SAM riboswitch aptamer (S box leader): a 125-nucleotide sequence from Nocardioides euryhalodurans.
The match comes from Rfam's covariance-model search (73 bits).
From the family's description: The SAM riboswitch is found upstream of a number of genes which code for proteins involved in methionine or cysteine biosynthesis in Gram-positive bacteria.
NCBI's taxonomy places the organism under Bacteria, Bacillati, Propionibacteriales, Nocardioidaceae, Nocardioides.
[Rfam]
RNA sequence: AGCUCAUCGAGAGGGACUGAGGGAACGGCCCGUUGACGUCCCGGCAACCGCCACGACACUCCUGUCGUCGUGGAGACGGUGCCAAUUCCGGCCUGGGACGAGAGUCGUCACAGGGAAGAUGAGGA
Number, nucleotide and partner (000 for none) at each position: 001a000002g000003c123004u122005c121006a120007u119008c118009g000010a000011g000012a000013g042014g041015g040016a039017c038018u000019g000020a000021g031022g030023g029024a000025a000026c090027g089028g088029c023030c022031c021032g000033u000034u000035g000036a000037c000038g017039u016040c015041c014042c013043g083044g082045c081046a080047a000048c079049c078050g000051c000052c073053a000054c000055g000056a000057c000058a000059c000060u000061c000062c000063u000064g000065u000066c000067g000068u000069c000070g000071u000072g000073g052074a000075g000076a000077c000078g049079g048080u046081g045082c044083c043084a000085a000086u000087u117088c028089c027090g026091g000092c114093c113094u112095g111096g000097g109098a108099c107100g106101a000102g000103a000104g000105u000106c100107g099108u098109c097110a000111c095112a094113g093114g092115g000116a000117a087118g008119a007120u006121g005122a004123g003124g000125a000